[Rfam]
RNA: small nucleolar RNA snoR137
Organism: Nelumbo nucifera
RNA sequence: GUUGCUUCUUACUGGUGAACUCGCUCCUAGAUAAGUAAUGGAGGAUGAUCAUGUUUCAGAAGCAUAUAUUGAUAGAAGGAAUCUCGCCAGUAUAAAACAGCACGGUGGGUUCUAUCUGGCCUCACUGUGUUACCUGUCUCCUGGUACAUAU
Numbered sequence: 001g002u003u004g005c006u007u008c009u010u011a012c013u014g015g016u017g018a019a020c021u022c023g024c025u026c027c028u029a030g031a032u033a034a035g036u037a038a039u040g041g042a043g044g045a046u047g048a049u050c051a052u053g054u055u056u057c058a059g060a061a062g063c064a065u066a067u068a069u070u071g072a073u074a075g076a077a078g079g080a081a082u083c084u085c086g087c088c089a090g091u092a093u094a095a096a097a098c099a100g101c102a103c104g105g106u107g108g109g110u111u112c113u114a115u116c117u118g119g120c121c122u123c124a125c126u127g128u129g130u131u132a133c134c135u136g137u138c139u140c141c142u143g144g145u146a147c148a149u150a151u
Stems, first nucleotide, its partner, number of pairs: 003064006016051003020047001021045002024043003086145005092139001099131003103127005